RNA sequence: GGGCCAUAUGAUGAAAUACUUUAUGCAACUCACGAUGGUCAUCUGAGACACUUUGUGUGUAAUGUUGCAGUCAUGUUUUCUCUGAUGAUC
Numbered sequence: 001g002g003g004c005c006a007u008a009u010g011a012u013g014a015a016a017u018a019c020u021u022u023a024u025g026c027a028a029c030u031c032a033c034g035a036u037g038g039u040c041a042u043c044u045g046a047g048a049c050a051c052u053u054u055g056u057g058u059g060u061a062a063u064g065u066u067g068c069a070g071u072c073a074u075g076u077u078u079u080c081u082c083u084g085a086u087g088a089u090c
Stems, first nucleotide, its partner, number of pairs: 001090002004087001049057003

This 90-nucleotide sequence from Sorghum bicolor belongs to the Rfam family "Small nucleolar RNA Z161/Z228". Rfam links the family to the GO terms RNA processing and nucleolus. A search with the family's covariance model found it, with a score of 73 bits. For this family Rfam cites "The high diversity of snoRNAs in plants: identification and comparative study of 120 snoRNA genes from Oryza sativa" (Chen et al., Nucleic Acids Res, 2003). The family's RNA type in Rfam is C/D-box small nucleolar RNA. Rfam 15.1 lists 630 matches to the family in 214 species. Its Rfam clan is "SNORD35 clan".